[Rfam]
RNA: Streptomyces-metK RNA
RNA sequence: UCGAGACACCCAUGAUUGGAUGCGGGUGGAGAUGGAUAAAAUGGCGGCGGACCGUACGUCGGGCCCGUGAGCCGGGCGCAGUCGCCGACCGGUCCGCCAUGUUCAGCCAGCAGCCGCUGCAACCCCAGGGAG
Numbered sequence: 001u002c003g004a005g006a007c008a009c010c011c012a013u014g015a016u017u018g019g020a021u022g023c024g025g026g027u028g029g030a031g032a033u034g035g036a037u038a039a040a041a042u043g044g045c046g047g048c049g050g051a052c053c054g055u056a057c058g059u060c061g062g063g064c065c066c067g068u069g070a071g072c073c074g075g076g077c078g079c080a081g082u083c084g085c086c087g088a089c090c091g092g093u094c095c096g097c098c099a100u101g102u103u104c105a106g107c108c109a110g111c112a113g114c115c116g117c118u119g120c121a122a123c124c125c126c127a128g129g130g131a132g
Stems, first nucleotide, its partner, number of pairs: 049095006058089005108119004
Dot-bracket structure: ................................................((((((...(((((......................)))))))))))............((((....)))).............